[Rfam]
RNA sequence: AUGAAUCUUAAGGGAGAGGUCUAGUCAGCAUGAUUAGACGCCGAAGGGGCAAGGAAGACAGAAUUUUCUUAAACUCUCAGGCACCAGGACCUUAAGAGGACG
Numbered sequence: 001a002u003g004a005a006u007c008u009u010a011a012g013g014g015a016g017a018g019g020u021c022u023a024g025u026c027a028g029c030a031u032g033a034u035u036a037g038a039c040g041c042c043g044a045a046g047g048g049g050c051a052a053g054g055a056a057g058a059c060a061g062a063a064u065u066u067u068c069u070u071a072a073a074c075u076c077u078c079a080g081g082c083a084c085c086a087g088g089a090c091c092u093u094a095a096g097a098g099g100a101c102g
Stems, first nucleotide, its partner, number of pairs: 006097008020038006040082003043078002047076003053069006
Glycine riboswitch aptamer: a 102-nucleotide RNA sequence from Selenihalanaerobacter shriftii. A search with the family's covariance model found it, with a score of 68 bits. Lineage of the source: Bacteria > Bacillati > Clostridia > Halanaerobiales > Selenihalanaerobacter.